RNA sequence: CCAUCAUCUGUUACAGUGUUAACAAUGUUGG
Numbered sequence: 001c002c003a004u005c006a007u008c009u010g011u012u013a014c015a016g017u018g019u020u021a022a023c024a025a026u027g028u029u030g031g
Stems, first nucleotide, its partner, number of pairs: 001031003005027003009024005014018001
Rfam assigns this 31-nucleotide RNA sequence from Callipepla squamata to the family "Iron response element II". It scores 33 bits against the family's covariance model. A reference for the family is Gunshin et al. (2001), "Iron-dependent regulation of the divalent metal ion transporter", FEBS Lett. Pairs were carried over by alignment from the consensus structure, which is taken from published work. From the family's description: IRE, TFRC, SLC40A1, SDHB, SLC11A2, CDC42BPA, ACO2, ALAS2_H.SAPIENS, CDC14A, EPAS1, ALAS2, qoxD, Hao1, NDUFS1, transferrin, Aconitate. Rfam classes the family as a cis-regulatory element. Rfam 15.1 lists 5,197 matches to the family in 722 species.